[Rfam]
RNA sequence: UACUGUUAGUGAUGUAUAAAGUUUAAACAGAUGGGAAUCUCUCUGAAUAAGAUUGAAGACUGAUUCUUAAGCUGAAACAGUA
Number, nucleotide and partner (000 for none) at each position: 001u082002a081003c080004u079005g078006u077007u076008a000009g000010u000011g000012a000013u000014g000015u000016a000017u000018a000019a000020a000021g000022u000023u000024u000025a000026a000027a000028c000029a000030g000031a000032u000033g000034g000035g000036a000037a000038u000039c000040u000041c000042u000043c000044u000045g000046a000047a000048u000049a000050a000051g000052a000053u000054u000055g000056a000057a000058g000059a000060c000061u000062g000063a000064u000065u000066c000067u000068u000069a000070a000071g000072c000073u000074g000075a000076a007077a006078c005079a004080g003081u002082a001